[Rfam]
Annotation: The family of this 103-nucleotide RNA sequence from Oryzomonas rubra is "SAM riboswitch aptamer (S box leader)". Pairs were carried over by alignment from the consensus structure, which is taken from published work. A search with the family's covariance model found it, with a score of 81 bits. The source organism's lineage runs through Bacteria, Pseudomonadati, Thermodesulfobacteriota, Desulfuromonadia and Oryzomonas.
RNA sequence: ACCUUAUUGAGAGUGGUGGAGGGAAAGGCCCGACGAAACCACAGCAACCGGCCCAGACGGGGCGACAGGUGCUAAUUCCUGCCGGUACCGGCAAAGAUGAGGU
Number, nucleotide and partner (000 for none) at each position: 001a103002c102003c101004u100005u099006a098007u097008u096009g000010a000011g000012a000013g042014u041015g040016g039017u038018g000019g000020a000021g031022g030023g029024a000025a000026a080027g079028g078029c023030c022031c021032g000033a000034c000035g000036a000037a000038a017039c016040c015041a014042c013043a073044g072045c071046a070047a000048c069049c068050g000051g063052c062053c061054c000055a000056g000057a000058c000059g000060g000061g053062g052063c051064g000065a000066c000067a000068g049069g048070u046071g045072c044073u043074a000075a000076u000077u095078c028079c027080u026081g000082c000083c091084g000085g089086u000087a000088c000089c085090g000091g083092c000093a000094a000095a077096g008097a007098u006099g005100a004101g003102g002103u001